[Rfam]
RNA sequence: GCCCGGGCGAUCCUCGGUGGUCCGGGGUGCAGGCUUCAAACCUGUAGCCGUCUAGCGACGGAGUGGUUCGAUUCCACCGUCUGGGU
Numbered sequence: 001g002c003c004c005g006g007g008c009g010a011u012c013c014u015c016g017g018u019g020g021u022c023c024g025g026g027g028u029g030c031a032g033g034c035u036u037c038a039a040a041c042c043u044g045u046a047g048c049c050g051u052c053u054a055g056c057g058a059c060g061g062a063g064u065g066g067u068u069c070g071a072u073u074c075c076a077c078c079g080u081c082u083g084g085g086u
Stems, first nucleotide, its partner, number of pairs: 001086009012027006028046006048061005063077004